[Rfam]
Rfam assigns this 96-nucleotide sequence from Spirochaeta isovalerica to the family "Group II catalytic intron D1-D4-1". The pairing is the family consensus, mapped onto this sequence. NCBI's taxonomy places the organism under Bacteria, Spirochaetia, Spirochaetales, Spirochaetaceae, Spirochaeta. For this family Rfam cites "The ins and outs of group II introns" (Bonen and Vogel, Trends Genet, 2001). It scores 56 bits against the family's covariance model.
RNA sequence: CGUCAGCAAGAGCAAUCUUGUCUGAUAAGCAGGCAGAAGUCAGCAGACGGCAUAGUAGCCAACGCCCGGAGUAAUGUCCGGUUCACGGUGAAGGCC
Numbered sequence: 001c002g003u004c005a006g007c008a009a010g011a012g013c014a015a016u017c018u019u020g021u022c023u024g025a026u027a028a029g030c031a032g033g034c035a036g037a038a039g040u041c042a043g044c045a046g047a048c049g050g051c052a053u054a055g056u057a058g059c060c061a062a063c064g065c066c067c068g069g070a071g072u073a074a075u076g077u078c079c080g081g082u083u084c085a086c087g088g089u090g091a092a093g094g095c096c
Stems, first nucleotide, its partner, number of pairs: 002026001006021006039048003049096003058089003067080002